[Rfam]
RNA sequence: GUUGCAAGUUCCAGGCCAUAGCAGAAGCACUCCCCAUGUGGCCCCGUCAGAUUCCAGUGAAUCUGUGAAUUCUGAU
Numbered sequence: 001g002u003u004g005c006a007a008g009u010u011c012c013a014g015g016c017c018a019u020a021g022c023a024g025a026a027g028c029a030c031u032c033c034c035c036a037u038g039u040g041g042c043c044c045c046g047u048c049a050g051a052u053u054c055c056a057g058u059g060a061a062u063c064u065g066u067g068a069a070u071u072c073u074g075a076u
Stems, first nucleotide, its partner, number of pairs: 014043004020076001022074005027039003048065007

The family of this 76-nucleotide RNA sequence from Crocodylus porosus is "Mammalian CPEB3 ribozyme".
Rfam describes the family as follows. The mammalian CPEB3 ribozyme is a self cleaving RNA located in the second intron of the CPEB3 gene which belongs to a family of genes regulating messenger RNA polyadenylation.
Taxonomically the source falls in Crocodylus (Eukaryota, Metazoa, Deuterostomia, Amniota).
The match comes from Rfam's covariance-model search (46 bits).